drz-agam-1 ribozyme: a 79-nucleotide sequence from Hermetia illucens.

[Rfam]
RNA sequence: UACUACCAAACCCUAUCUCUACCUCCAGGUGGUGAUGGCCGAGAGUUUUUCCUUAAUGAAGAACUGCAGACAGAGAAGG
Numbered sequence: 001u002a003c004u005a006c007c008a009a010a011c012c013c014u015a016u017c018u019c020u021a022c023c024u025c026c027a028g029g030u031g032g033u034g035a036u037g038g039c040c041g042a043g044a045g046u047u048u049u050u051c052c053u054u055a056a057u058g059a060a061g062a063a064c065u066g067c068a069g070a071c072a073g074a075g076a077a078g079g
Stems, first nucleotide, its partner, number of pairs: 012079003016075001018073001021033003044065007052058001
A reference for the family is Webb et al. (2009), "Widespread occurrence of self-cleaving ribozymes", Science. Pairs were carried over by alignment from the consensus structure, which is taken from published work.